The record is a 150-nucleotide RNA from Heyndrickxia ginsengihumi, which matches "c-di-AMP riboswitch aptamer (ydaO/yuaA leader)" in Rfam.
It scores 95 bits against the family's covariance model.
Rfam links the family to the GO terms cyclic-di-AMP binding and regulation of gene expression.
[Rfam]
RNA sequence: UCCAUAAUAUCGCUCAAUUACAUUUUUUGUAAGCGGGGGAACCAAUUUUUGUACAUGUUUGUACAUUUGGGGUGAAACCUUUUAUAGGUGGGGAGACUCUUUAUUCCCUAAUCCGUCAGCUAACCUCGUAAGCGUCUAGAGAGAGUCAUG
Dot-bracket structure: ..........((((...(((.........)))((((((....((.......................))(((.....(((.....)))..((((..........))))...))).........)))))).))))................